Small nucleolar RNA Z112: a 173-nucleotide RNA from Cebus imitator. For this family Rfam cites "A novel gene organization: intronic snoRNA gene clusters from Oryza sativa" (Liang et al., Nucleic Acids Res, 2002). The family is grouped with related families in Rfam's "SNORD49 clan". Gene Ontology terms of the family: RNA processing and nucleolus. Pairs were carried over by alignment from the consensus structure, which was predicted with PFOLD.

RNA sequence: ACACAGCUGUGUAUUUGAAGAAUAAAUGAAGAAAUGAAGUAAACACAAGACAUACACACAUACAUAUACCCAUACACAGCUGUAUCUGUGUGAUACAGCUGUGUAUGGGUGAUACAUCUGUAUCUGUGUGAUACAGCUGUGUAUGGGUAUAUGUAUGUGUGUGUGUCUUGUGU
Number, nucleotide and partner (000 for none) at each position: 001a173002c172003a171004c170005a169006g000007c000008u000009g000010u000011g000012u000013a000014u000015u000016u000017g000018a000019a000020g000021a000022a000023u000024a000025a000026a000027u000028g000029a000030a000031g000032a000033a000034a000035u000036g000037a000038a000039g000040u000041a000042a000043a000044c000045a000046c000047a000048a000049g000050a000051c000052a000053u000054a000055c000056a000057c000058a000059c000060a123061u122062a121063c120064a119065u000066a117067u116068a000069c109070c108071c107072a106073u105074a104075c103076a000077c000078a100079g099080c098081u097082g096083u095084a094085u093086c092087u000088g000089u000090g000091u000092g086093a085094u084095a083096c082097a081098g080099c079100u078101g000102u000103g075104u074105a073106u072107g071108g070109g069110u000111g000112a000113u000114a000115c000116a067117u066118c000119u064120g063121u062122a061123u060124c000125u000126g000127u000128g000129u000130g000131a000132u000133a000134c000135a000136g000137c000138u000139g000140u000141g000142u000143a000144u000145g000146g000147g000148u000149a000150u000151a000152u000153g000154u000155a000156u000157g000158u000159g000160u000161g000162u000163g000164u000165g000166u000167c000168u000169u005170g004171u003172g002173u001